[Rfam]
RNA: Y RNA
RNA sequence: UGCUGGUCUGAGUGCAGUGGCGUUUACAACUAAACCAGUUACAGAUUUAUUUGUUCCUUCUCCACUCCCACUGCUUCACUUGACUAGCCUAAA
Numbered sequence: 001u002g003c004u005g006g007u008c009u010g011a012g013u014g015c016a017g018u019g020g021c022g023u024u025u026a027c028a029a030c031u032a033a034a035c036c037a038g039u040u041a042c043a044g045a046u047u048u049a050u051u052u053g054u055u056c057c058u059u060c061u062c063c064a065c066u067c068c069c070a071c072u073g074c075u076u077c078a079c080u081u082g083a084c085u086a087g088c089c090u091a092a093a
Base pairs, nucleotide, nucleotide: 002088003087004086005085006084007083008082010081011080014077016072017071018070019069020068022067028055029054030053032051033050
Dot-bracket structure: .(((((((.((..(.(((((.(.....(((.((................)).)))...........))))))....)..))))))))).....